[Rfam]
RNA sequence: GCCCAAUUGGCGCAAUGGUUAGCGCAUUCGACUGUAUGUUUUCUUCGGUUACUUCAGAUAUGCUCACUCAAACUAACAAUUCCCAGUCUAUCUUGACUCCUCCACAAGGAUGGUUGUCUGAGGUGAUCGAAAGGUUGCGAGUUCGAGUCUCGCAUUGGGUU
Numbered sequence: 001g002c003c004c005a006a007u008u009g010g011c012g013c014a015a016u017g018g019u020u021a022g023c024g025c026a027u028u029c030g031a032c033u034g035u036a037u038g039u040u041u042u043c044u045u046c047g048g049u050u051a052c053u054u055c056a057g058a059u060a061u062g063c064u065c066a067c068u069c070a071a072a073c074u075a076a077c078a079a080u081u082c083c084c085a086g087u088c089u090a091u092c093u094u095g096a097c098u099c100c101u102c103c104a105c106a107a108g109g110a111u112g113g114u115u116g117u118c119u120g121a122g123g124u125g126a127u128c129g130a131a132a133g134g135u136u137g138c139g140a141g142u143u144c145g146a147g148u149c150u151c152g153c154a155u156u157g158g159g160u161u
Stems, first nucleotide, its partner, number of pairs: 001160007010025004027131005137153005
RNA: tRNA